A member of the RNA family "ilvB-OMG RNA", 205 nucleotides long. By type it is a cis-regulatory element. The sequence is in the family's curated seed alignment. Pairs were carried over by alignment from the consensus structure, which is taken from published work.

RNA sequence: GUCACGCGAGCGGCAACGGCUACCGGUGAGUACCCUCACCCUCUGGCCUACCUCAGAGACGGGAUAGUUUCUCAGGCUGUUUGCGGGUUCCGUCAGGCAAGGCAUAGCCUCAGCCACUCGGGCUCGACGCUGCGUUACCCCGCAGUCACCGAUACACGGGUUUCGUGAUCGUGAUCUGGCAGGUGCCGGACCGAUCCGGCCAGUG
Numbered sequence: 001g002u003c004a005c006g007c008g009a010g011c012g013g014c015a016a017c018g019g020c021u022a023c024c025g026g027u028g029a030g031u032a033c034c035c036u037c038a039c040c041c042u043c044u045g046g047c048c049u050a051c052c053u054c055a056g057a058g059a060c061g062g063g064a065u066a067g068u069u070u071c072u073c074a075g076g077c078u079g080u081u082u083g084c085g086g087g088u089u090c091c092g093u094c095a096g097g098c099a100a101g102g103c104a105u106a107g108c109c110u111c112a113g114c115c116a117c118u119c120g121g122g123c124u125c126g127a128c129g130c131u132g133c134g135u136u137a138c139c140c141c142g143c144a145g146u147c148a149c150c151g152a153u154a155c156a157c158g159g160g161u162u163u164c165g166u167g168a169u170c171g172u173g174a175u176c177u178g179g180c181a182g183g184u185g186c187c188g189g190a191c192c193g194a195u196c197c198g199g200c201c202a203g204u205g
Base pairs, nucleotide, nucleotide: 018048019047020046021045022044025040026039027038028037029036030035051076052075053074055072056071057070058069059068060067085125086124087123088122090121091120092119096115097114098113100110101109102108103107143178144177145176146174147173148172150171151170152169153168155167156166157165158164186199187198188197189196190195